The record is a 106-nucleotide RNA from Leifsonia sp. 21MFCrub1.1, which matches "Glycine riboswitch aptamer" in Rfam.
Its family is annotated with glycine biosynthetic process in the Gene Ontology.
The match comes from Rfam's covariance-model search (34 bits).
RNA sequence: CCACUCUGAAAAGCAGGACGGCGCCCGCCGCCCUCGCCCACGGUGAAAGCCGCGCAUCCCGUCCGGGAGGCGAGGUGAAACUCUCAGGCCGGAUGACAGAGGGGGA
Numbered sequence: 001c002c003a004c005u006c007u008g009a010a011a012a013g014c015a016g017g018a019c020g021g022c023g024c025c026c027g028c029c030g031c032c033c034u035c036g037c038c039c040a041c042g043g044u045g046a047a048a049g050c051c052g053c054g055c056a057u058c059c060c061g062u063c064c065g066g067g068a069g070g071c072g073a074g075g076u077g078a079a080a081c082u083c084u085c086a087g088g089c090c091g092g093a094u095g096a097c098a099g100a101g102g103g104g105g106a
Base pairs, nucleotide, nucleotide: 001104002103004101005100006099007098008097015034016033017032036089037088038087040084043083045081049076050075